[Rfam]
Nucleotides: 090
Base pairs, nucleotide, nucleotide: 001085002084003083004082005081006080007079011077013076014075015074016073022072023071024070025069028045029044030043031042032041033040034039048061049060050059051058
Number, partner (000 for none) and nucleotide at each position: 001085g002084g003083c004082a005081g006080g007079c008000a009000a010000g011077c012000g013076c014075c015074g016073g017000a018000a019000c020000a021000a022072c023071u024070u025069c026000g027000a028045g029044u030043u031042g032041c033040c034039g035000a036000a037000c038000a039034u040033g041032g042031c043030a044029g045028c046000a047000g048061c049060g050059c051058u052000c053000u054000a055000a056000g057000c058051a059050g060049c061048g062000u063000g064000c065000a066000u067000c068000a069025g070024g071023a072022g073016c074015c075014g076013g077011g078000g079007g080006c081005c082004u083003g084002c085001c086000a087000c088000u089000u090000u